[Rfam]
Small nucleolar RNA snoR60: a 71-nucleotide RNA sequence from Vigna radiata.
Taxonomically the source falls in Vigna radiata (Eukaryota, Viridiplantae, Gunneridae, Fabales).
The literature on the family includes a 2000 paper in J Biol Chem by Barneche et al., "Fibrillarin genes encode both a conserved nucleolar protein and a novel small nucleolar RNA involved in ribosomal RNA methylation in Arabidopsis thaliana".
RNA sequence: GUGCUUCGGACAAGUUACUCGGAUUCCCCUUCAAGGCAUCCUUGUUGAUGCAGACCCGGGUUUCUGAAGCA
Numbered sequence: 001g002u003g004c005u006u007c008g009g010a011c012a013a014g015u016u017a018c019u020c021g022g023a024u025u026c027c028c029c030u031u032c033a034a035g036g037c038a039u040c041c042u043u044g045u046u047g048a049u050g051c052a053g054a055c056c057c058g059g060g061u062u063u064c065u066g067a068a069g070c071a
Stems, first nucleotide, its partner, number of pairs: 002071004